A member of the RNA family "Small nucleolar RNA ACA64" from Bucco capensis, 125 nucleotides long. By type it is an H/ACA-box small nucleolar RNA. Taxonomically the source falls in Bucco (Eukaryota, Bilateria, Euteleostomi, Bucconidae). Gene Ontology terms of the family: RNA processing and nucleolus. On this family, see Schattner et al., RNA 2006: "A computational screen for mammalian pseudouridylation guide H/ACA RNAs". Rfam 15.1 lists 9,537 matches to the family in 620 species.
[Rfam]
RNA sequence: ACAGUCUGAAAAUCACUUGGGGUCUUCUGUGGUCCCUGGUGUGAUAACUGUGCCAAUAGCAGAGGGAGCAUUAAACUCACUGACCAUGGUAAAGUAUGGGGAGUGAUACCCGUGUUCCUAUAAUC
Number, nucleotide and partner (000 for none) at each position: 001a000002c000003a000004g000005u000006c050007u000008g048009a000010a045011a000012a000013u000014c041015a040016c039017u000018u000019g000020g000021g034022g033023u032024c031025u000026u000027c000028u000029g000030u000031g024032g023033u022034c021035c000036c000037u000038g000039g016040u015041g014042u000043g000044a000045u010046a000047a000048c008049u000050g006051u000052g000053c000054c000055a000056a000057u000058a000059g000060c000061a000062g000063a000064g000065g118066g000067a116068g115069c114070a113071u112072u000073a000074a000075a000076c000077u106078c105079a104080c103081u102082g000083a000084c000085c098086a097087u096088g000089g000090u000091a000092a000093a000094g000095u000096a087097u086098g085099g000100g000101g000102a081103g080104u079105g078106a077107u000108a000109c000110c000111c000112g071113u070114g069115u068116u067117c000118c065119u000120a000121u000122a000123a000124u000125c000